The record is a 90-nucleotide RNA sequence from Ramlibacter humi, which matches "Glycine riboswitch aptamer" in Rfam.
For this family Rfam cites "A glycine-dependent riboswitch that uses cooperative binding to control gene expression" (Mandal et al., Science, 2004).
Rfam's curators write: This family represents the bacterial glycine riboswitch.
Lineage of the source: Bacteria > Pseudomonadati > Betaproteobacteria > Burkholderiales > Ramlibacter.

RNA sequence: CGCGGGUUGUCAGGAGAGAGCUCUCCCGAGGAGCCGCCGAAGGCGCAGGCGCACAGCCGAACGCUCAGGCAAAAGGACUGACGGCCACCC
Numbered sequence: 001c002g003c004g005g006g007u008u009g010u011c012a013g014g015a016g017a018g019a020g021c022u023c024u025c026c027c028g029a030g031g032a033g034c035c036g037c038c039g040a041a042g043g044c045g046c047a048g049g050c051g052c053a054c055a056g057c058c059g060a061a062c063g064c065u066c067a068g069g070c071a072a073a074a075g076g077a078c079u080g081a082c083g084g085c086c087a088c089c090c
Stems, first nucleotide, its partner, number of pairs: 006085008020034004036070003039066002043064003048058002